[Rfam]
RNA sequence: GGAGGUCGAAGUGUACCCCGCACGCCCCACCAGUGGUGUAUCGGGGAAUGGAACUGACCGAG
Numbered sequence: 001g002g003a004g005g006u007c008g009a010a011g012u013g014u015a016c017c018c019c020g021c022a023c024g025c026c027c028c029a030c031c032a033g034u035g036g037u038g039u040a041u042c043g044g045g046g047a048a049u050g051g052a053a054c055u056g057a058c059c060g061a062g
Stems, first nucleotide, its partner, number of pairs: 004059005016046005023038004